[Rfam]
RNA: Bacterial large subunit ribosomal RNA, nucleotides 9 to 507
RNA sequence: UCCGUAAGGGCGUGGGGGGGAUGCCUAGGCGUCAUCUGGCAAGCGGGCGUUGCAGGCUGCGAUAUGCUCGGGGAAGCGGCCAACCACGCAUUGAUCCCGAGAUCCCCGCUGGAACCCAGGGAACUGAAACAUCUCAGUACCUGGAGGAAAAGAAAUCAACCGAGACUCCCUUAGUAGCGGCGAGCGAACGGGGACCAGCCUAAACCGUCGGGCACACCCGACGGGGUUGCGGGACCGACAUUACGAGACCUUUGCUUCUAGCCGAAACCGCCUGGAAAGGCGUGCCAAAGCGGGUGACAGCCCCGUAGGCGACCGAAGUGAUGGCUCAGUCGGCACCCAAGUAGGGUCGGGCACGUGAAACCCGGCCUGAAUCUGGGGGGACCUUCCUCCAAGGCUCAGUACACGAUGACGACCGAUAGCGAACCCAGUAGGGCGACCGAACGGUGGGAAGAACCCCGAUGAGGGGAGGACACUGAACCUGAAACCCCAUGCCUACAAG
Numbered sequence: 001u002c003c004g005u006a007a008g009g010g011c012g013u014g015g016g017g018g019g020g021a022u023g024c025c026u027a028g029g030c031g032u033c034a035u036c037u038g039g040c041a042a043g044c045g046g047g048c049g050u051u052g053c054a055g056g057c058u059g060c061g062a063u064a065u066g067c068u069c070g071g072g073g074a075a076g077c078g079g080c081c082a083a084c085c086a087c088g089c090a091u092u093g094a095u096c097c098c099g100a101g102a103u104c105c106c107c108g109c110u111g112g113a114a115c116c117c118a119g120g121g122a123a124c125u126g127a128a129a130c131a132u133c134u135c136a137g138u139a140c141c142u143g144g145a146g147g148a149a150a151a152g153a154a155a156u157c158a159a160c161c162g163a164g165a166c167u168c169c170c171u172u173a174g175u176a177g178c179g180g181c182g183a184g185c186g187a188a189c190g191g192g193g194a195c196c197a198g199c200c201u202a203a204a205c206c207g208u209c210g211g212g213c214a215c216a217c218c219c220g221a222c223g224g225g226g227u228u229g230c231g232g233g234a235c236c237g238a239c240a241u242u243a244c245g246a247g248a249c250c251u252u253u254g255c256u257u258c259u260a261g262c263c264g265a266a267a268c269c270g271c272c273u274g275g276a277a278a279g280g281c282g283u284g285c286c287a288a289a290g291c292g293g294g295u296g297a298c299a300g301c302c303c304c305g306u307a308g309g310c311g312a313c314c315g316a317a318g319u320g321a322u323g324g325c326u327c328a329g330u331c332g333g334c335a336c337c338c339a340a341g342u343a344g345g346g347u348c349g350g351g352c353a354c355g356u357g358a359a360a361c362c363c364g365g366c367c368u369g370a371a372u373c374u375g376g377g378g379g380g381a382c383c384u385u386c387c388u389c390c391a392a393g394g395c396u397c398a399g400u401a402c403a404c405g406a407u408g409a410c411g412a413c414c415g416a417u418a419g420c421g422a423a424c425c426c427a428g429u430a431g432g433g434c435g436a437c438c439g440a441a442c443g444g445u446g447g448g449a450a451g452a453a454c455c456c457c458g459a460u461g462a463g464g465g466g467a468g469g470a471c472a473c474u475g476a477a478c479c480u481g482a483a484a485c486c487c488c489a490u491g492c493c494u495a496c497a498a499g
Stems, first nucleotide, its partner, number of pairs: 008494010023479001024444002028414002030411007037403002044108004048061003067101007076089003115146001116144005126133002156163002166399001167194005177185002197396004205224007231338003235333005247326001249324002252321007261310003267283001269282004286290001292304003344368008375390005431438002454466004